[Rfam]
The record is an 84-nucleotide RNA from Danionella cerebrum, which matches "mir-15 microRNA precursor family" in Rfam.
Rfam's curators write: This family represents the related mir-15a and mir-15b sequences. In humans miR-15a and miR-16 are clustered within 0.5 kb at 13q14. This region has been shown to be deleted in more than half of B cell chronic lymphocytic leukaemias (CLL). Both miR-15a and miR-16 are deleted or down-regulated in more than two thirds of CLL cases.
It scores 63 bits against the family's covariance model.
The family has 164 seed sequences and 2,045 matches in Rfam 15.1.
RNA sequence: CCUGUCGGUGCUGUAGCAGCACAGAAUGGUUUGUGAGUUAUACCGGUGGUGCAGGCCGUGCUGUGCUGCAUCAACAACGGCAGG
Number, nucleotide and partner (000 for none) at each position: 001c084002c083003u082004g081005u080006c079007g000008g000009u000010g000011c000012u000013g072014u000015a000016g069017c068018a067019g066020c065021a064022c063023a062024g061025a000026a059027u058028g057029g056030u055031u054032u053033g052034u051035g050036a000037g000038u000039u000040a000041u000042a000043c000044c000045g000046g000047u000048g000049g000050u035051g034052c033053a032054g031055g030056c029057c028058g027059u026060g000061c024062u023063g022064u021065g020066c019067u018068g017069c016070a000071u000072c013073a000074a000075c000076a000077a000078c000079g006080g005081c004082a003083g002084g001
A reference for the family is Lagos-Quintana et al. (2001), "Identification of novel genes coding for small expressed RNAs", Science. Its family is annotated with miRNA-mediated post-transcriptional gene silencing and RISC complex in the Gene Ontology.